The family of this 54-nucleotide RNA sequence from Oncorhynchus kisutch is "UnaL2 LINE 3' element". From the family's description: The eel long interspersed element (LINE) UnaL2 and its partner short interspersed element (SINE) share a conserved 3' tail containing a stem-loop that is critical for their retrotransposition. Presumably, the first step of retrotransposition is the recognition of their 3' tails by UnaL2-encoded reverse transcriptase.
RNA sequence: UGCACUCACUAAUGUAAAGCGCUCUGGAUAAGAGCGUCUGCUAAAUCAAAUGUA
Numbered sequence: 001u002g003c004a005c006u007c008a009c010u011a012a013u014g015u016a017a018a019g020c021g022c023u024c025u026g027g028a029u030a031a032g033a034g035c036g037u038c039u040g041c042u043a044a045a046u047c048a049a050a051u052g053u054a
Base pairs, nucleotide, nucleotide: 013043014041015040016039020036021035022034023033024032025031
It is annotated as a cis-regulatory element. Pairs were carried over by alignment from the consensus structure, which is taken from published work.